[Rfam]
RNA sequence: UAAAAGGGCUCCGCGCUAUGUGCGCAGGCCGGGUGCUACGCGUUCGGUCCGGAAUGGUCAUCAAGACAUUUCGGGAGCGUAUUCUUUGACUGUGGUCUGUCCGCCAUGCCUGGACGGCCGU
Number, nucleotide and partner (000 for none) at each position: 001u000002a000003a000004a000005a000006g000007g000008g078009c077010u076011c075012c074013g025014c024015g023016c022017u000018a000019u000020g000021u000022g016023c015024g014025c013026a000027g049028g048029c047030c046031g045032g044033g043034u042035g041036c000037u000038a000039c000040g000041c035042g034043u033044u032045c031046g030047g029048u028049c027050c073051g072052g071053a070054a069055u068056g067057g000058u000059c000060a000061u000062c000063a000064a000065g000066a000067c056068a055069u054070u053071u052072c051073g050074g012075g011076a010077g009078c008079g000080u000081a000082u000083u000084c000085u000086u000087u000088g000089a000090c000091u000092g000093u000094g119095g118096u117097c116098u000099g115100u114101c113102c112103g111104c000105c000106a000107u000108g000109c000110c000111u103112g102113g101114a100115c099116g097117g096118c095119c094120g000121u000
The family of this 121-nucleotide RNA from Taenia asiatica is "U11 spliceosomal RNA". On this family, see Schneider et al., Proc Natl Acad Sci U S A 2004: "Identification of an evolutionarily divergent U11 small nuclear ribonucleoprotein particle in Drosophila". A search with the family's covariance model found it, with a score of 60 bits. The source organism's lineage runs through Eukaryota, Opisthokonta, Eumetazoa, Bilateria and Taenia.